RNA sequence: UGGUUUUCUGCUUCAACAGUGCUUGGAUGGAACUUG
Numbered sequence: 001u002g003g004u005u006u007u008c009u010g011c012u013u014c015a016a017c018a019g020u021g022c023u024u025g026g027a028u029g030g031a032a033c034u035u036g
Base pairs, nucleotide, nucleotide: 001036002035003034005032006031007030008029010028012027013026014025015024016023017021
This 36-nucleotide RNA sequence from Carlito syrichta belongs to the Rfam family "Iron response element I".
The family has 62 seed sequences and 6,829 matches in Rfam 15.1.
Pairs were carried over by alignment from the consensus structure, which is taken from published work.
The match comes from Rfam's covariance-model search (38 bits).
Rfam links the family to the GO term response to iron ion.
It is annotated as a cis-regulatory element.
A reference for the family is Hentze et al. (1987), "Identification of the iron-responsive element for the translational regulation of human ferritin mRNA", Science.